[Rfam]
mir-9215 microRNA precursor family: an 85-nucleotide RNA sequence from Cnephaeus nilssonii. The base pairs follow the family's consensus structure, which was predicted with RNAalifold.
RNA sequence: UGAAGUGCUCUGACACUAGGACGUGUGGCUGCCAUGGGUUGAUGGGAACCAGGCUUGCCCAGGGUCAGUGUUCCCAGUGUGUGGU
Numbered sequence: 001u002g003a004a005g006u007g008c009u010c011u012g013a014c015a016c017u018a019g020g021a022c023g024u025g026u027g028g029c030u031g032c033c034a035u036g037g038g039u040u041g042a043u044g045g046g047a048a049c050c051a052g053g054c055u056u057g058c059c060c061a062g063g064g065u066c067a068g069u070g071u072u073c074c075c076a077g078u079g080u081g082u083g084g085u
Stems, first nucleotide, its partner, number of pairs: 001083002004080001006079004012072006019066001022063001024061002027059003031054003037050004
A search with the family's covariance model found it, with a score of 96 bits.